[Rfam]
RNA sequence: AUUUGCAGAAGAGGAGCACUGCCCAGGUAGGUGUGUUGUGGAGCCACAAAUCCAAUACAACAUAUUUAGGGGGAGCAGUGCCGAGGUAGAUCUAGAGUGUCGGUUUAGAUCUGUCGGUUGCUAGGGUUGAAUCCCUACAACUGUCAUCAGCCCAGUCUGAUGAUGAGCUUCUGAGGAA
Numbered sequence: 001a002u003u004u005g006c007a008g009a010a011g012a013g014g015a016g017c018a019c020u021g022c023c024c025a026g027g028u029a030g031g032u033g034u035g036u037u038g039u040g041g042a043g044c045c046a047c048a049a050a051u052c053c054a055a056u057a058c059a060a061c062a063u064a065u066u067u068a069g070g071g072g073g074a075g076c077a078g079u080g081c082c083g084a085g086g087u088a089g090a091u092c093u094a095g096a097g098u099g100u101c102g103g104u105u106u107a108g109a110u111c112u113g114u115c116g117g118u119u120g121c122u123a124g125g126g127u128u129g130a131a132u133c134c135c136u137a138c139a140a141c142u143g144u145c146a147u148c149a150g151c152c153c154a155g156u157c158u159g160a161u162g163a164u165g166a167g168c169u170u171c172u173g174a175g176g177a178a
Stems, first nucleotide, its partner, number of pairs: 006173006016081007024073001030066008085115012116142004122137005144163007
RNA: Lysine riboswitch aptamer